[Rfam]
Nucleotides: 057
Base pairs, nucleotide, nucleotide: 007054008053009052010051011050012049013048014047015046016045017044019042020041021040022039023038025036
Number, partner (000 for none) and nucleotide at each position: 001000a002000a003000g004000c005000u006000g007054g008053u009052g010051a011050g012049a013048g014047c015046c016045a017044u018000a019042u020041g021040a022039a023038u024000c025036a026000c027000u028000a029000a030000a031000c032000u033000a034000a035000u036025u037000u038023a039022u040021u041020c042019a043000a044017a045016u046015g047014g048013u049012u050011c051010u052009c053008a054007c055000u056000a057000a